[Rfam]
RNA sequence: GUCAACACACACACGUUCCUUGCCUCCGAGGUUUGGCUGCACCCGGGCGGAGGCUGAUUAACCCGUAAGGAGCUGAUAAUG
Numbered sequence: 001g002u003c004a005a006c007a008c009a010c011a012c013a014c015g016u017u018c019c020u021u022g023c024c025u026c027c028g029a030g031g032u033u034u035g036g037c038u039g040c041a042c043c044c045g046g047g048c049g050g051a052g053g054c055u056g057a058u059u060a061a062c063c064c065g066u067a068a069g070g071a072g073c074u075g076a077u078a079a080u081g
Stems, first nucleotide, its partner, number of pairs: 015073007022054006030043003